[Rfam]
Nucleotides: 064
Stems, first nucleotide, its partner, number of pairs: 034061003037056004044049001
Number, partner (000 for none) and nucleotide at each position: 001000a002000a003000g004000u005000g006000u007000u008000a009000u010000g011000g012000u013000u014000c015000u016000u017000u018000u019000a020000u021000a022000a023000u024000u025000u026000g027000u028000c029000u030000a031000g032000c033000a034061g035060g036059u037056u038055u039054u040053c041000c042000a043000c044049u045000u046000u047000u048000c049044a050000c051000c052000a053040g054039a055038a056037a057000c058000u059036g060035c061034c062000u063000g064000u